[Rfam]
RNA: Iron response element II
RNA sequence: AUAUUUUCUGAGACAGUGCUUUUCAAAAGUAU
Number, nucleotide and partner (000 for none) at each position: 001a032002u031003a030004u029005u028006u027007u026008c000009u025010g024011a023012g021013a020014c018015a000016g000017u000018g014019c000020u013021u012022u000023u011024c010025a009026a007027a006028a005029g004030u003031a002032u001